[Rfam]
RNA sequence: GAGGUGAGGCUGAGCCCCUGACCUUAAACCGGGGAUCCUAACCAUGAUCUCUGGGUGCUGCUGUCAGGGGUAGAUUCCUCA
Number, nucleotide and partner (000 for none) at each position: 001g000002a000003g000004g000005u000006g080007a079008g078009g077010c000011u000012g000013a000014g071015c070016c069017c068018c067019u066020g065021a064022c063023c000024u000025u000026a000027a000028a056029c055030c054031g000032g051033g050034g049035a048036u047037c046038c000039u000040a000041a000042c000043c000044a000045u000046g037047a036048u035049c034050u033051c032052u000053g000054g030055g029056u028057g000058c000059u000060g000061c000062u000063g022064u021065c020066a019067g018068g017069g016070g015071u014072a000073g000074a000075u000076u000077c009078c008079u007080c006081a000
mir-3070 microRNA precursor family: an 81-nucleotide sequence from Sciurus carolinensis. A search with the family's covariance model found it, with a score of 78 bits. Taxonomically the source falls in Sciurus (Eukaryota, Mammalia, Eutheria, Sciuromorpha).